[Rfam]
RNA: c-di-GMP-I riboswitch aptamer
RNA sequence: UCUCGAUAACGGCAAAAUCCGAGUAAUCGGGUGGCGCAAAGUUUCGGAUCCCAGUAGCGGAUGGCCGGACCACCGAA
Numbered sequence: 001u002c003u004c005g006a007u008a009a010c011g012g013c014a015a016a017a018u019c020c021g022a023g024u025a026a027u028c029g030g031g032u033g034g035c036g037c038a039a040a041g042u043u044u045c046g047g048a049u050c051c052c053a054g055u056a057g058c059g060g061a062u063g064g065c066c067g068g069a070c071c072a073c074c075g076a077a
Base pairs, nucleotide, nucleotide: 012037013036017032018031019030020029021028022027041070042069043068045067046066047065048062049061050060